[Rfam]
RNA sequence: CCGGAAUCCGCACCGACUCACGUGUGGCAGGAGCGGGGGAACCAGGUAAGCCGCCGGCCGGAGGGAUCCGGUACGGCUAGGGGUCAAGUCGCGCACCGCGCGGCCGGGCAUCUCCAGUCCGAACCCGACAGCUCACCUCGCAGGCGCCGGAGAGGAAAAGC
Numbered sequence: 001c002c003g004g005a006a007u008c009c010g011c012a013c014c015g016a017c018u019c020a021c022g023u024g025u026g027g028c029a030g031g032a033g034c035g036g037g038g039g040a041a042c043c044a045g046g047u048a049a050g051c052c053g054c055c056g057g058c059c060g061g062a063g064g065g066a067u068c069c070g071g072u073a074c075g076g077c078u079a080g081g082g083g084u085c086a087a088g089u090c091g092c093g094c095a096c097c098g099c100g101c102g103g104c105c106g107g108g109c110a111u112c113u114c115c116a117g118u119c120c121g122a123a124c125c126c127g128a129c130a131g132c133u134c135a136c137c138u139c140g141c142a143g144g145c146g147c148c149g150g151a152g153a154g155g156a157a158a159a160g161c
Stems, first nucleotide, its partner, number of pairs: 001144002007032003033141006043080001081126003089103004106120004

A member of the RNA family "c-di-AMP riboswitch aptamer (ydaO/yuaA leader)" from Streptomyces sp. ADI93-02, 161 nucleotides long. Gene Ontology terms of the family: cyclic-di-AMP binding and regulation of gene expression.